[Rfam]
RNA sequence: UUGCUCGGGGCAAGUUCCAUACAGCCAGCUCCCUAUGAAUUCCGUCAGGGUCGGAAGGCAGCAGCGGUAGUAGGUCGUAGCGGCGUGAUAUGGGUAGCUUGCCCUCUU
Dot-bracket structure: .......((((((((.(((((((((.........................................................)).)).)))))...))))))))....

Description: Rfam assigns this 108-nucleotide sequence from Rhodohalobacter barkolensis to the family "Bacteroidales small SRP". The family's consensus secondary structure is taken from published work. By type it is a non-coding RNA gene. Clan: SRP clan. NCBI's taxonomy places the organism under Bacteria, Pseudomonadati, Balneolota, Balneolales, Rhodohalobacter.